The record is a 117-nucleotide RNA sequence from Arthrobacter sp. Bz4, which matches "SAM (S-adenosyl methionine) riboswitch aptamer" in Rfam. The match comes from Rfam's covariance-model search (83 bits). Pairs were carried over by alignment from the consensus structure, which is taken from published work. The family is grouped with related families in Rfam's "SAM clan".
RNA sequence: AAUCAAGAGUGUCAACCAACGGCCCUGGCCGGUUGACCAGCAACCCUCUCCCGUAGCGGGGUGCUCCAGGUUAAGAUUCGGCCGCCGGAACAAGUCCCCGGACGGCAAGUACGGCGU
Numbered sequence: 001a002a003u004c005a006a007g008a009g010u011g012u013c014a015a016c017c018a019a020c021g022g023c024c025c026u027g028g029c030c031g032g033u034u035g036a037c038c039a040g041c042a043a044c045c046c047u048c049u050c051c052c053g054u055a056g057c058g059g060g061g062u063g064c065u066c067c068a069g070g071u072u073a074a075g076a077u078u079c080g081g082c083c084g085c086c087g088g089a090a091c092a093a094g095u096c097c098c099c100g101g102a103c104g105g106c107a108a109g110u111a112c113g114g115c116g117u
Stems, first nucleotide, its partner, number of pairs: 001078004009038001011037006021030002039065003044061003048056002081106004085101004